[Rfam]
RNA sequence: UAUCAUGAUUUUUUAAUGACUUAUAUAUGCUUCGAAUAUGGCGAAGUGUUUCUACCUAAAUCCGUAAAAUUUAGACUAUAAGUUAGAUUUUUUAUUUU
Numbered sequence: 001u002a003u004c005a006u007g008a009u010u011u012u013u014u015a016a017u018g019a020c021u022u023a024u025a026u027a028u029g030c031u032u033c034g035a036a037u038a039u040g041g042c043g044a045a046g047u048g049u050u051u052c053u054a055c056c057u058a059a060a061u062c063c064g065u066a067a068a069a070u071u072u073a074g075a076c077u078a079u080a081a082g083u084u085a086g087a088u089u090u091u092u093u094a095u096u097u098u
Stems, first nucleotide, its partner, number of pairs: 018084008029047006056074006